The record is a 358-nucleotide RNA from Sporolactobacillus inulinus, which matches "transfer-messenger RNA" in Rfam. Bacterial tmRNA, also known as 10Sa RNA or SsrA, is named for its dual tRNA and mRNA-like properties. Its role is to liberate the mRNA from a stalled ribosome. NCBI's taxonomy places the organism under Bacteria, Bacillota, Bacilli, Caryophanales, Sporolactobacillus. Clan: tRNA clan. Gene Ontology term of the family: RNA catabolic process. A search with the family's covariance model found it, with a score of 196 bits.
RNA sequence: GGGGACGUUACGGAUUCGACAGGGGCAGGUCGGGGUUUAAGCGGCGAGCCGAGGGGUCGGCCUCGUAAAAACGCCAAAGCCAUAACUGGCAAAACGAAUAACAACCUCGCUCUAGCUGCCUAAUCAGCUUUAGCGGUCCCUCCCUCCAUCGCCCAUGUGGUAGGAUCAGGGACUCACUCUAGUGGGAUACGCCGGACGCUCGCAUCCUGAGGGCCAUGGAAGAGAUUAACCGGGAUAGCCUCGCGAAAGCCUGUCGGUGGGCCGACGCCGAGGCGAAACGCUAAUAUGCCGACUACGCUCGUAGAAACUUAAAUUACGAUGUCUUUGGACGUGGGUUCGACUCCCACCGUCUCCAUUC
Numbered sequence: 001g002g003g004g005a006c007g008u009u010a011c012g013g014a015u016u017c018g019a020c021a022g023g024g025g026c027a028g029g030u031c032g033g034g035g036u037u038u039a040a041g042c043g044g045c046g047a048g049c050c051g052a053g054g055g056g057u058c059g060g061c062c063u064c065g066u067a068a069a070a071a072c073g074c075c076a077a078a079g080c081c082a083u084a085a086c087u088g089g090c091a092a093a094a095c096g097a098a099u100a101a102c103a104a105c106c107u108c109g110c111u112c113u114a115g116c117u118g119c120c121u122a123a124u125c126a127g128c129u130u131u132a133g134c135g136g137u138c139c140c141u142c143c144c145u146c147c148a149u150c151g152c153c154c155a156u157g158u159g160g161u162a163g164g165a166u167c168a169g170g171g172a173c174u175c176a177c178u179c180u181a182g183u184g185g186g187a188u189a190c191g192c193c194g195g196a197c198g199c200u201c202g203c204a205u206c207c208u209g210a211g212g213g214c215c216a217u218g219g220a221a222g223a224g225a226u227u228a229a230c231c232g233g234g235a236u237a238g239c240c241u242c243g244c245g246a247a248a249g250c251c252u253g254u255c256g257g258u259g260g261g262c263c264g265a266c267g268c269c270g271a272g273g274c275g276a277a278a279c280g281c282u283a284a285u286a287u288g289c290c291g292a293c294u295a296c297g298c299u300c301g302u303a304g305a306a307a308c309u310u311a312a313a314u315u316a317c318g319a320u321g322u323c324u325u326u327g328g329a330c331g332u333g334g335g336u337u338c339g340a341c342u343c344c345c346a347c348c349g350u351c352u353c354c355a356u357u358c
Base pairs, nucleotide, nucleotide: 001354002353003352004351005350006349007348020327021326022325023324024323025322026321027320032317034315035314036313037312038311039310040309041308045301046300047299048298049297050065051064052063053062054061056075058073059072111132114129115128116127117126118125136173137172138171139170140169141168143164144163145162146160147159148158149157152186153185154184155183156182192219193218194217198214199213200212204236205235206234207233208232209231238274239273240272241271242270243269244267245266249262250261251260253293254292255291256290257287258286259285331347332346333345334344335343
Dot-bracket structure: (((((((............((((((((....(.((((((((...((((((((((.[.[[.)))))......]].]...................................(..(((((......)))))..)...((((((.(((((((..[[[[[)))).)))...))))))........]]]]].....[[[...[[[...((((((..]]]..]]]...........)))))).((((((((...(((.[[[[[[[)))...)).))))))..........]]]..]]]]...)))))......)))))))).)..))))))))...(((((.......))))))))))))....